[Rfam]
Rfam assigns this 74-nucleotide sequence from Acaryochloris marina to the family "Cyano-1 RNA".

Nucleotides: 074
Stems, first nucleotide, its partner, number of pairs: 027069005034062005039056003
Number, partner (000 for none) and nucleotide at each position: 001000a002000g003000a004000c005000c006000a007000g008000u009000g010000a011000g012000g013000a014000g015000u016000g017000a018000u019000u020000c021000a022000g023000a024000u025000g026000a027069a028068a029067a030066g031065c032000u033000c034062u035061u036060g037059a038058g039056g040055u041054c042000g043000a044000a045000a046000c047000a048000c049000g050000g051000c052000a053000a054041g055040a056039c057000u058038c059037u060036c061035a062034a063000g064000a065031g066030c067029u068028u069027u070000u071000u072000u073000a074000u

Notes: It scores 48 bits against the family's covariance model.